The record is a 211-nucleotide RNA sequence from Elioraea tepida, which matches "permuted transfer-messenger RNA" in Rfam.

RNA sequence: GGCGAUAAACGGUGCCUGGAAUAAGCGUAGCGGACCCGGGGGCAGUGCCCGGCGCCUCCACCAUCAUCUCCCCCUGCGGCGGGGGCCUUAAGGGGGCGAAACAGGCUCGACGCGCGUGGUAAAGAGGUACCUUUCGCCCGGCACGGUUCCGCCGUCAUCGGGCCAAUCCACAAGUGCCAACGACAACAGCCGUAUGGCGCUCGCUGCCUGA
Number, nucleotide and partner (000 for none) at each position: 001g138002g137003c136004g135005a134006u000007a000008a000009a000010c000011g000012g000013u000014g128015c127016c126017u125018g000019g000020a000021a000022u000023a000024a000025g000026c116027g115028u114029a000030g113031c112032g111033g000034a000035c000036c052037c051038g050039g049040g048041g000042g000043c000044a000045g000046u000047g000048c040049c039050c038051g037052g036053c098054g097055c096056c095057u094058c093059c092060a000061c000062c000063a000064u000065c000066a000067u000068c000069u000070c000071c000072c000073c000074c000075u000076g000077c000078g000079g000080c000081g000082g000083g000084g000085g000086c000087c000088u000089u000090a000091a000092g059093g058094g057095g056096g055097c054098g053099a000100a000101a000102c000103a000104g000105g000106c000107u000108c000109g000110a000111c032112g031113c030114g028115c027116g026117u000118g000119g000120u000121a000122a000123a000124g000125a017126g016127g015128u014129a000130c000131c000132u000133u000134u005135c004136g003137c002138c001139c154140g153141g152142c151143a000144c000145g000146g000147u000148u000149c000150c000151g142152c141153c140154g139155u000156c000157a000158u000159c000160g000161g000162g000163c000164c000165a000166a000167u000168c000169c000170a000171c000172a000173a000174g000175u000176g000177c000178c000179a000180a000181c000182g000183a000184c000185a000186a000187c000188a000189g000190c000191c000192g000193u000194a000195u000196g000197g000198c000199g000200c000201u000202c000203g000204c000205u000206g000207c000208c000209u000210g000211a000

The match comes from Rfam's covariance-model search (144 bits). From the family's description: Bacterial tmRNA, also known as 10Sa RNA or SsrA, is named for its dual tRNA and mRNA-like properties. Lineage of the source: Bacteria > Pseudomonadati > Alphaproteobacteria > Elioraeaceae > Elioraea.